[Rfam]
RNA: Nucleoid-associated noncoding RNA 4 (CssrE)
RNA sequence: GGCCGGAUAAGGCGUUCACGCCGCACCCGGCACUGGUUGCCUGAUGCGACGCUUGCGCGUCUUAUCAGGCC
Numbered sequence: 001g002g003c004c005g006g007a008u009a010a011g012g013c014g015u016u017c018a019c020g021c022c023g024c025a026c027c028c029g030g031c032a033c034u035g036g037u038u039g040c041c042u043g044a045u046g047c048g049a050c051g052c053u054u055g056c057g058c059g060u061c062u063u064a065u066c067a068g069g070c071c
Stems, first nucleotide, its partner, number of pairs: 002031005008025001011022004039070008048061005